Ascomycota telomerase RNA: a 526-nucleotide part of an RNA from Mollisiaceae sp. DMI_Dod_QoI.
[Rfam]
RNA sequence: AUUCAAACGGAGAGAAGCUUUACUAUUCGCAUUGCGGUAUCUGAUCGUCCUUGGCUUGGUCUAUUUCGCGUCAGGUCUACUGUCGAUGUUCAAACAACUAUUGCUGGGUUGAAGUUUCAAGUCACUCAGGCGAGAUACAGUUACGGUCUUGGGUGAUGAAUAUUGUGGGAUGCGAAAGACUGGGAAACUUGGUGAGAUUGUCCAAGUUGAUUCAUGCUGCCAACACAUACUCAGGUAUUGACAUGGAGGAAGGGAGGAAGUUGCUCAGCGUCCAGAACGGGACCCAUCUCGGGUUGGAGUCAAAGCUUAGUGCUUGUCUUUUCUGGGUAGCGUUGUGCGAGUUGCCAAACUUGUUGAAAUGUUGUGCUUGACGUCUGGGUUGCUGUGUUGAAUUGUGGACAUUCUCAAGUCUGGCCUCUCGGAGCUCUCGUGGGGCGCCUAGGAAAAGGACAGGCCUGAUGGAAGGCAGUCCAGGGUCGUCUCUGUUUGCUCUGCAGGCAUUGGACGACCCCUCCAAUUUUUGGGG
Numbered sequence: 001a002u003u004c005a006a007a008c009g010g011a012g013a014g015a016a017g018c019u020u021u022a023c024u025a026u027u028c029g030c031a032u033u034g035c036g037g038u039a040u041c042u043g044a045u046c047g048u049c050c051u052u053g054g055c056u057u058g059g060u061c062u063a064u065u066u067c068g069c070g071u072c073a074g075g076u077c078u079a080c081u082g083u084c085g086a087u088g089u090u091c092a093a094a095c096a097a098c099u100a101u102u103g104c105u106g107g108g109u110u111g112a113a114g115u116u117u118c119a120a121g122u123c124a125c126u127c128a129g130g131c132g133a134g135a136u137a138c139a140g141u142u143a144c145g146g147u148c149u150u151g152g153g154u155g156a157u158g159a160a161u162a163u164u165g166u167g168g169g170a171u172g173c174g175a176a177a178g179a180c181u182g183g184g185a186a187a188c189u190u191g192g193u194g195a196g197a198u199u200g201u202c203c204a205a206g207u208u209g210a211u212u213c214a215u216g217c218u219g220c221c222a223a224c225a226c227a228u229a230c231u232c233a234g235g236u237a238u239u240g241a242c243a244u245g246g247a248g249g250a251a252g253g254g255a256g257g258a259a260g261u262u263g264c265u266c267a268g269c270g271u272c273c274a275g276a277a278c279g280g281g282a283c284c285c286a287u288c289u290c291g292g293g294u295u296g297g298a299g300u301c302a303a304a305g306c307u308u309a310g311u312g313c314u315u316g317u318c319u320u321u322u323c324u325g326g327g328u329a330g331c332g333u334u335g336u337g338c339g340a341g342u343u344g345c346c347a348a349a350c351u352u353g354u355u356g357a358a359a360u361g362u363u364g365u366g367c368u369u370g371a372c373g374u375c376u377g378g379g380u381u382g383c384u385g386u387g388u389u390g391a392a393u394u395g396u397g398g399a400c401a402u403u404c405u406c407a408a409g410u411c412u413g414g415c416c417u418c419u420c421g422g423a424g425c426u427c428u429c430g431u432g433g434g435g436c437g438c439c440u441a442g443g444a445a446a447a448g449g450a451c452a453g454g455c456c457u458g459a460u461g462g463a464a465g466g467c468a469g470u471c472c473a474g475g476g477u478c479g480u481c482u483c484u485g486u487u488u489g490c491u492c493u494g495c496a497g498g499c500a501u502u503g504g505a506c507g508a509c510c511c512c513u514c515c516a517a518u519u520u521u522u523g524g525g526g
Stems, first nucleotide, its partner, number of pairs: 281301003284297003303315004
It scores 112 bits against the family's covariance model. NCBI's taxonomy places the organism under Eukaryota, Dikarya, leotiomyceta, sordariomyceta, Mollisiaceae.